RNA: Histone 3' UTR stem-loop
Organism: Sinocyclocheilus rhinocerous
RNA sequence: CCAAAGGCUCUUUUAAGAGCCACCACAGUCACACUGAAUGAGAGUUU
Numbered sequence: 001c002c003a004a005a006g007g008c009u010c011u012u013u014u015a016a017g018a019g020c021c022a023c024c025a026c027a028g029u030c031a032c033a034c035u036g037a038a039u040g041a042g043a044g045u046u047u
Stems, first nucleotide, its partner, number of pairs: 006021006